Small nucleolar RNA SNORA40: a 127-nucleotide RNA sequence from Oryctolagus cuniculus. Gene Ontology terms of the family: nucleolus and RNA processing. The family's consensus secondary structure was predicted with RNAalifold. NCBI's taxonomy places the organism under Eukaryota, Eumetazoa, Theria, Euarchontoglires, Oryctolagus. A reference for the family is Ofengand and Bakin (1997), "Mapping to nucleotide resolution of pseudouridine residues in large subunit ribosomal RNAs from representative eukaryotes, prokaryotes, archaebacteria, mitochondria and chloroplasts", J Mol Biol. By type it is an H/ACA-box small nucleolar RNA. The family has 28 seed sequences and 2,550 matches in Rfam 15.1. The snoRNA ACA 40 belongs to the H/ACA family of snoRNAs and guides the pseudouridylation of 28S rRNA subunit at position U4565. NB This family has a high threshold value to exclude a large number of closely related sequences that do not appear to have conserved H and ACA boxes, and may be pseudogenes.

RNA sequence: UGCACUUGGCAUAUGUUUUUGUCUAAUUUGGACAAAGACUGACGUACACGUGCAAAAAAUAAAUCCUCUUUUGCAACCCAGAACUCAUUGAUCAGUAUUAGUUUUGAUACAUACAAGCAGGAAUAGA
Numbered sequence: 001u002g003c004a005c006u007u008g009g010c011a012u013a014u015g016u017u018u019u020u021g022u023c024u025a026a027u028u029u030g031g032a033c034a035a036a037g038a039c040u041g042a043c044g045u046a047c048a049c050g051u052g053c054a055a056a057a058a059a060u061a062a063a064u065c066c067u068c069u070u071u072u073g074c075a076a077c078c079c080a081g082a083a084c085u086c087a088u089u090g091a092u093c094a095g096u097a098u099u100a101g102u103u104u105u106g107a108u109a110c111a112u113a114c115a116a117g118c119a120g121g122a123a124u125a126g127a
Stems, first nucleotide, its partner, number of pairs: 001054005007048002012044001015039008063124002066121002070117004079106007087098002